This 97-nucleotide RNA sequence from Allonocardiopsis opalescens belongs to the Rfam family "Glycine riboswitch aptamer".

[Rfam]
RNA sequence: CGACCCCGUGCGGGAGAGUGUCCGGGCCGCCAGCCCGGACCGCCGAAGGAGCAAAUCCUCCCCGGAACCUCUCAGGCCGCUGGACCGCGCGGACGAG
Numbered sequence: 001c002g003a004c005c006c007c008g009u010g011c012g013g014g015a016g017a018g019u020g021u022c023c024g025g026g027c028c029g030c031c032a033g034c035c036c037g038g039a040c041c042g043c044c045g046a047a048g049g050a051g052c053a054a055a056u057c058c059u060c061c062c063c064g065g066a067a068c069c070u071c072u073c074a075g076g077c078c079g080c081u082g083g084a085c086c087g088c089g090c091g092g093a094c095g096a097g
Stems, first nucleotide, its partner, number of pairs: 006092008020040006042077003045073002049071003056064001

Gene Ontology term of the family: glycine biosynthetic process.
The match comes from Rfam's covariance-model search (59 bits).
Rfam's curators write: This family represents the bacterial glycine riboswitch.
Lineage of the source: Bacteria > Actinomycetota > Actinomycetes > Streptosporangiales > Allonocardiopsis.